[Rfam]
RNA sequence: CAAUAAACGGGAUAGAACGAAAAUCCUUUUUGUGUCAUAAACCGUCAUACCGAAAUGAGGAACGAUUGAGGUAUCUGUUAGCUAAGAGCUACUAUCCUGCAGAUUUCUCUCUGCGUUCGAAAUGCGCUAAAACAAAAAGAUUGGAGUGAUAGCCCGACUAACA
Numbered sequence: 001c002a003a004u005a006a007a008c009g010g011g012a013u014a015g016a017a018c019g020a021a022a023a024u025c026c027u028u029u030u031u032g033u034g035u036c037a038u039a040a041a042c043c044g045u046c047a048u049a050c051c052g053a054a055a056u057g058a059g060g061a062a063c064g065a066u067u068g069a070g071g072u073a074u075c076u077g078u079u080a081g082c083u084a085a086g087a088g089c090u091a092c093u094a095u096c097c098u099g100c101a102g103a104u105u106u107c108u109c110u111c112u113g114c115g116u117u118c119g120a121a122a123u124g125c126g127c128u129a130a131a132a133c134a135a136a137a138a139g140a141u142u143g144g145a146g147u148g149a150u151a152g153c154c155c156g157a158c159u160a161a162c163a
Stems, first nucleotide, its partner, number of pairs: 009155003013151002017147002022142004028137006035130001
RNA: Flavo-1 RNA
Organism: Pedobacter cryotolerans